RNA sequence: UAUUAAUUAAAAAGUGGGGCUGGAUACGGAGGAUCCAGUGUGGGAAGAAGACAGCCCCCAAGGAAUGCGUUCCGCAACAAUUCUUCACUCUGGACAUGCCGCGGGAACCUGCCUCGGCUACAACCAGAAGUAAGUAUCGGCGUCUGAUUAUGGGACAAGAAUUAAGCAGGCACGAAAUUUAUGUUCGGCAAUUGCAGGAUGCCUUACGGAUGUGAGGAGUAAAGGUUAAAAUAGAGGAUCUAUUGAGAUUCUUUGAAUUUAUUAAGGAAACCUGUCCUU
Number, nucleotide and partner (000 for none) at each position: 001u000002a000003u000004u000005a000006a000007u031008u030009a000010a000011a000012a000013a000014g027015u026016g025017g000018g000019g000020c000021u000022g000023g000024a000025u016026a015027c014028g000029g000030a008031g007032g000033a000034u000035c000036c000037a000038g000039u053040g052041u051042g000043g000044g000045a000046a000047g000048a000049a000050g000051a041052c040053a039054g000055c000056c000057c000058c000059c000060a000061a000062g000063g000064a000065a000066u000067g000068c000069g000070u000071u000072c000073c000074g000075c000076a000077a000078c000079a000080a000081u000082u000083c000084u000085u000086c000087a131088c130089u129090c127091u126092g000093g000094a000095c000096a000097u122098g000099c000100c116101g115102c000103g113104g112105g000106a000107a000108c000109c000110u000111g000112c104113c103114u000115c101116g100117g000118c000119u000120a000121c000122a097123a000124c000125c000126a091127g090128a000129a089130g088131u087132a000133a000134g000135u000136a000137u158138c000139g156140g000141c000142g000143u154144c153145u152146g151147a000148u000149u000150a000151u146152g145153g144154g143155a000156c139157a000158a137159g000160a000161a000162u000163u206164a205165a204166g202167c201168a200169g000170g000171c000172a000173c000174g000175a000176a000177a000178u000179u000180u000181a000182u000183g000184u000185u000186c000187g000188g000189c000190a000191a000192u000193u000194g000195c000196a000197g000198g000199a000200u168201g167202c166203c000204u165205u164206a163207c000208g000209g000210a000211u000212g000213u255214g254215a253216g252217g251218a250219g249220u248221a000222a000223a241224g240225g239226u238227u237228a000229a000230a000231a000232u000233a000234g000235a000236g000237g227238a226239u225240c224241u223242a000243u000244u000245g000246a000247g000248a220249u219250u218251c217252u216253u215254u214255g213256a000257a000258u000259u000260u000261a000262u000263u000264a279265a278266g277267g276268a275269a000270a000271c000272c000273u000274g000275u268276c267277c266278u265279u264